Overview:
Rfam assigns this 101-nucleotide RNA sequence from Actinomadura harenae to the family "Glycine riboswitch aptamer".
RNA sequence: CGACCUCUGGAAAGCGAGGGCGUUCCCGCCCUCCGCCGAAGGUGAAAGCCCCCUCCGAGGACGGGGUGAAACUCUCAGGCGCCGAUGACAGAGGGGGAGGC
Number, nucleotide and partner (000 for none) at each position: 001c000002g000003a000004c094005c093006u092007c091008u090009g089010g000011a000012a000013a000014g000015c000016g033017a032018g031019g030020g000021c000022g000023u000024u000025c000026c000027c000028g000029c000030c019031c018032u017033c016034c000035g080036c079037c078038g076039a075040a000041g000042g074043u000044g072045a000046a000047a000048g067049c066050c065051c064052c063053c000054u000055c000056c000057g000058a000059g000060g000061a000062c000063g052064g051065g050066g049067u048068g000069a000070a000071a000072c044073u000074c042075u039076c038077a000078g037079g036080c035081g000082c000083c000084g000085a000086u000087g000088a000089c009090a008091g007092a006093g005094g004095g000096g000097g000098a000099g000100g000101c000
About this RNA:
This family represents the bacterial glycine riboswitch. Taxonomically the source falls in Actinomadura (Bacteria, Bacillati, Actinomycetota, Thermomonosporaceae). The match comes from Rfam's covariance-model search (47 bits).